let-7 microRNA precursor family: an 81-nucleotide sequence from Panagrolaimus sp. JU765. A reference for the family is Rougvie (2001), "Control of developmental timing in animals", Nat Rev Genet. Rfam's curators write: This family represents the microRNAs (miRNA) let-7 and mir-98. let-7 was identified from a study of developmental timing in C. elegans, and was later shown to be part of a much larger class of non-coding RNAs termed miRNAs. Its family is annotated with RISC complex and miRNA-mediated post-transcriptional gene silencing in the Gene Ontology. Its Rfam clan is "let-7 microRNA precursor clan".

[Rfam]
RNA sequence: GCGCUAUGAGGUAGUAGGUUGUAUAGUUUUGGAAUUUUAUCAAAUUGGAGAAAAACUAUGCAGCUUACUAGCUUGUCGUGC
Numbered sequence: 001g002c003g004c005u006a007u008g009a010g011g012u013a014g015u016a017g018g019u020u021g022u023a024u025a026g027u028u029u030u031g032g033a034a035u036u037u038u039a040u041c042a043a044a045u046u047g048g049a050g051a052a053a054a055a056c057u058a059u060g061c062a063g064c065u066u067a068c069u070a071g072c073u074u075g076u077c078g079u080g081c
Base pairs, nucleotide, nucleotide: 001081002080003079004078006076008074009073010072012070013069014068015067016066017065018064019063020062021061022060023059024058025057026056027055029043030042031041032040045052046051